[Rfam]
RNA sequence: AACGCUCUAACGGGGUGCCGGACGCGUUUUCGCGAACCGGCUGAGAGGCCAAGGGGAUACCCGGCUAACCCGCUGAACCUGAUCCGGUUUGUACCGGCGGAGGGAUUAGAUGCUUCCGGAUG
Numbered sequence: 001a002a003c004g005c006u007c008u009a010a011c012g013g014g015g016u017g018c019c020g021g022a023c024g025c026g027u028u029u030u031c032g033c034g035a036a037c038c039g040g041c042u043g044a045g046a047g048g049c050c051a052a053g054g055g056g057a058u059a060c061c062c063g064g065c066u067a068a069c070c071c072g073c074u075g076a077a078c079c080u081g082a083u084c085c086g087g088u089u090u091g092u093a094c095c096g097g098c099g100g101a102g103g104g105a106u107u108a109g110a111u112g113c114u115u116c117c118g119g120a121u122g
Base pairs, nucleotide, nucleotide: 006110007109008108009107010106011072012071013070014069017041018040019039020038021037048065049064050063078103079102080101084097085096086095087094